[Rfam]
Nucleotides: 072
Stems, first nucleotide, its partner, number of pairs: 001071004
Number, partner (000 for none) and nucleotide at each position: 001071g002070u003069g004068c005000u006000a007000u008000g009000a010000u011000g012000a013000u014000a015000u016000u017000a018000u019000c020000a021000a022000c023000a024000c025000a026000u027000c028000a029000u030000u031000c032000u033000g034000a035000a036000a037000a038000g039000a040000a041000u042000u043000u044000g045000u046000g047000u048000g049000g050000a051000g052000a053000c054000c055000u056000u057000c058000a059000u060000a061000u062000a063000c064000c065000u066000g067000a068004g069003c070002a071001c072000a
Shown here is a 72-nucleotide sequence from Sphenodon punctatus, a member of the family "Small nucleolar RNA SNORD63". A reference for the family is Galardi et al. (2002), "Purified box C/D snoRNPs are able to reproduce site-specific 2'-O-methylation of target RNA in vitro", Mol Cell Biol. The family's consensus secondary structure was predicted with PFOLD. Gene Ontology terms of the family: nucleolus and RNA processing. About the family: snoRNA U63 is found in both humans and mice. It is annotated as a C/D-box small nucleolar RNA. The family has 23 seed sequences and 795 matches in Rfam 15.1.